[Rfam]
RNA sequence: GUCCAAAAUAGUGAUGCUGUCUUUUCCAAGCACAUAACCGAUUGCUCUGUGUGGAAAAUGACUGUUCUGAGUGAUUUUGGAU
Numbered sequence: 001g002u003c004c005a006a007a008a009u010a011g012u013g014a015u016g017c018u019g020u021c022u023u024u025u026c027c028a029a030g031c032a033c034a035u036a037a038c039c040g041a042u043u044g045c046u047c048u049g050u051g052u053g054g055a056a057a058a059u060g061a062c063u064g065u066u067c068u069g070a071g072u073g074a075u076u077u078u079g080g081a082u
Base pairs, nucleotide, nucleotide: 001082002081003080004079005078006077008075009074
A member of the RNA family "Small nucleolar RNA SNORD121A" from Dromaius novaehollandiae, 82 nucleotides long. The organism belongs to Dromaius, within Eukaryota. Rfam links the family to the GO terms RNA processing and nucleolus. The base pairs follow the family's consensus structure, which was predicted with WAR. The family's RNA type in Rfam is C/D-box small nucleolar RNA.